[Rfam]
Nucleotides: 083
Stems, first nucleotide, its partner, number of pairs: 017055004023040006057076008
Number, partner (000 for none) and nucleotide at each position: 001000c002000c003000c004000a005000g006000a007000g008000g009000u010000a011000u012000u013000g014000a015000u016000a017055g018054g019053u020052g021000a022000a023040g024039u025038c026037a027036g028035c029000g030000a031000c032000u033000u034000a035028g036027c037026u038025g039024a040023u041000c042000a043000c044000a045000a046000c047000a048000c049000u050000u051000a052020c053019a054018c055017c056000a057076a058075c059074c060073u061072g062071c063070g064069c065000g066000g067000a068000u069064g070063c071062g072061c073060a074059g075058g076057u077000u078000u079000u080000u081000u082000u083000u
This 83-nucleotide sequence from Cronobacter sakazakii belongs to the Rfam family "OmrA-B family".
On this family, see Argaman et al., Curr Biol 2001: "Novel small RNA-encoding genes in the intergenic regions of Escherichia coli".
It is annotated as a small RNA.